Source information
The family of this 114-nucleotide RNA sequence from Deinococcus cavernae is "TPP riboswitch aptamer (THI element)". NCBI's taxonomy places the organism under Bacteria, Thermotogati, Deinococci, Deinococcaceae, Deinococcus.
[Rfam]
RNA sequence: GCACGUCAACAGGGGUGCUUUCCGCGCAGUGCGGAGGGCUGAGAGGGCCAGCGGGCCUAACCCUAGAACCUGAACUGGGUAACACCAGCGGAGGAAGAUUGACGCGAGCGGAAU
Numbered sequence: 001g002c003a004c005g006u007c008a009a010c011a012g013g014g015g016u017g018c019u020u021u022c023c024g025c026g027c028a029g030u031g032c033g034g035a036g037g038g039c040u041g042a043g044a045g046g047g048c049c050a051g052c053g054g055g056c057c058u059a060a061c062c063c064u065a066g067a068a069c070c071u072g073a074a075c076u077g078g079g080u081a082a083c084a085c086c087a088g089c090g091g092a093g094g095a096a097g098a099u100u101g102a103c104g105c106g107a108g109c110g111g112a113a114u
Stems, first nucleotide, its partner, number of pairs: 006102004011064004017039009046057004069094003075088004
It scores 57 bits against the family's covariance model.